A member of the RNA family "Nematode snoRNA ceN36-1" from Teladorsagia circumcincta, 128 nucleotides long. The family has 5 seed sequences and 28 matches in Rfam 15.1. The base pairs follow the family's consensus structure, which was predicted with RNAalifold. Taxonomically the source falls in Teladorsagia (Eukaryota, Bilateria, Protostomia, Chromadorea). A search with the family's covariance model found it, with a score of 60 bits. A reference for the family is Jia et al. (2007), "Systematic identification of non-coding RNA 2,2,7-trimethylguanosine cap structures in Caenorhabditis elegans", BMC Mol Biol. By type it is an H/ACA-box small nucleolar RNA.
RNA sequence: CAACGCUCUCCAGCUCCGAGCGAGGAUCAUCUACUCGAUGCGGCGUUUCAAAGAGCGAAAAUCAAUGAAUGCUGACGAUUAUUGAUGUUUCUAUAUGGGAUAUCGAUCACUAAAAGAUUCGAACAUGU
Numbered sequence: 001c002a003a004c005g006c007u008c009u010c011c012a013g014c015u016c017c018g019a020g021c022g023a024g025g026a027u028c029a030u031c032u033a034c035u036c037g038a039u040g041c042g043g044c045g046u047u048u049c050a051a052a053g054a055g056c057g058a059a060a061a062u063c064a065a066u067g068a069a070u071g072c073u074g075a076c077g078a079u080u081a082u083u084g085a086u087g088u089u090u091c092u093a094u095a096u097g098g099g100a101u102a103u104c105g106a107u108c109a110c111u112a113a114a115a116g117a118u119u120c121g122a123a124c125a126u127g128u
Stems, first nucleotide, its partner, number of pairs: 004057005012047003016043003020039001024035002081107004086102003090099003